[Rfam]
RNA sequence: AUCUUAUCGAGAGUGGUGGAGGGACUUGGCCCGAUGAAGCCCGGCAACCUGUCAUCAGCAUAAGGUGCCAAUUCCAGCGAAAUGGGCUCCAUUUUGGAAGAUAAGGU
Numbered sequence: 001a002u003c004u005u006a007u008c009g010a011g012a013g014u015g016g017u018g019g020a021g022g023g024a025c026u027u028g029g030c031c032c033g034a035u036g037a038a039g040c041c042c043g044g045c046a047a048c049c050u051g052u053c054a055u056c057a058g059c060a061u062a063a064g065g066u067g068c069c070a071a072u073u074c075c076a077g078c079g080a081a082a083u084g085g086g087c088u089c090c091a092u093u094u095u096g097g098a099a100g101a102u103a104a105g106g107u
Base pairs, nucleotide, nucleotide: 001107002106003105004104005103006102007101008100013042015041016040017039021032022031023030026077027076028075029074043069044068045067046066048065049064050062051061052060073099078096079095080094081093082092083091